[Rfam]
RNA sequence: GGAUGUGGCUCUGGAGAACGUUCCUCAAGGGGACUGCCGAAGGUGCAACGCGCGCAAAGGGGUUUGCGUGCCAAUCUCUCAGGCAAAAGGACAGAGAUGAACCU
Numbered sequence: 001g002g003a004u005g006u007g008g009c010u011c012u013g014g015a016g017a018a019c020g021u022u023c024c025u026c027a028a029g030g031g032g033a034c035u036g037c038c039g040a041a042g043g044u045g046c047a048a049c050g051c052g053c054g055c056a057a058a059g060g061g062g063u064u065u066g067c068g069u070g071c072c073a074a075u076c077u078c079u080c081a082g083g084c085a086a087a088a089g090g091a092c093a094g095a096g097a098u099g100a101a102c103c104u
Base pairs, nucleotide, nucleotide: 006099007098009096010095011094012093013092020034021033022032023031036084037083038082039080040079043078045076050071051070052069053068054067055066056065057064058063
This 104-nucleotide RNA from Butyricicoccus sp. TM10-16AC belongs to the Rfam family "Glycine riboswitch aptamer". Its family is annotated with glycine biosynthetic process in the Gene Ontology. The organism belongs to Butyricicoccus, within Bacteria.